[Rfam]
The family of this 118-nucleotide RNA sequence from Paenibacillus sp. 598K is "epsC RNA". Lineage of the source: Bacteria > Bacillati > Bacillota > Paenibacillaceae > Paenibacillus. It scores 111 bits against the family's covariance model. Rfam classes the family as a cis-regulatory element. Pairs were carried over by alignment from the consensus structure, which is taken from published work.
RNA sequence: AGGUUGUGUCUCCCGCACCUUUAUCACUGGAGGCACUCGGUCACGCUGUGGGUUCCGGCAAGCGGAGCCUUAGACGUUCAUCGUCAAGGGUGUGAUGUGAGGAUGGGUUCGAUGCCCA
Numbered sequence: 001a002g003g004u005u006g007u008g009u010c011u012c013c014c015g016c017a018c019c020u021u022u023a024u025c026a027c028u029g030g031a032g033g034c035a036c037u038c039g040g041u042c043a044c045g046c047u048g049u050g051g052g053u054u055c056c057g058g059c060a061a062g063c064g065g066a067g068c069c070u071u072a073g074a075c076g077u078u079c080a081u082c083g084u085c086a087a088g089g090g091u092g093u094g095a096u097g098u099g100a101g102g103a104u105g106g107g108u109u110c111g112a113u114g115c116c117c118a
Stems, first nucleotide, its partner, number of pairs: 001020004007035007036101004040096008050070008073085004104118005
Dot-bracket structure: [[[[..(((((((...]]]]........)))))))((((((((((((..((((((((.....))))))))..((((.....))))...)))))))).))))..(((((.....)))))